Rfam assigns this 149-nucleotide RNA sequence from Chimaeribacter arupi to the family "Salmonella enterica Typhi npcRNA 44". By type it is a non-coding RNA gene. The base pairs follow the family's consensus structure, which was predicted with CMfinder. For this family Rfam cites "Experimental identification and characterization of 97 novel npcRNA candidates in Salmonella enterica serovar Typhi" (Chinni et al., Nucleic Acids Res, 2010). A search with the family's covariance model found it, with a score of 57 bits. The source organism's lineage runs through Bacteria, Pseudomonadati, Gammaproteobacteria, Yersiniaceae and Chimaeribacter.

RNA sequence: CUUUAACAAUCUGGAACAAGCUGAAAAUUGAAACAUUACAGCAUCCAUUACUCUCCGUAGUGUAUGACCUUCGGGUGAUACAUAGAGUAAUGCGAAGCCUGUAAUAGAGUCUCUCAAAUAAUCACGCUCGCGGAUGGAAACAUCUUCGG
Numbered sequence: 001c002u003u004u005a006a007c008a009a010u011c012u013g014g015a016a017c018a019a020g021c022u023g024a025a026a027a028u029u030g031a032a033a034c035a036u037u038a039c040a041g042c043a044u045c046c047a048u049u050a051c052u053c054u055c056c057g058u059a060g061u062g063u064a065u066g067a068c069c070u071u072c073g074g075g076u077g078a079u080a081c082a083u084a085g086a087g088u089a090a091u092g093c094g095a096a097g098c099c100u101g102u103a104a105u106a107g108a109g110u111c112u113c114u115c116a117a118a119u120a121a122u123c124a125c126g127c128u129c130g131c132g133g134a135u136g137g138a139a140a141c142a143u144c145u146u147c148g149g
Base pairs, nucleotide, nucleotide: 020125023123024122027119028118029117034107036104037103038102039101040100041099129148130147133144134143135142136141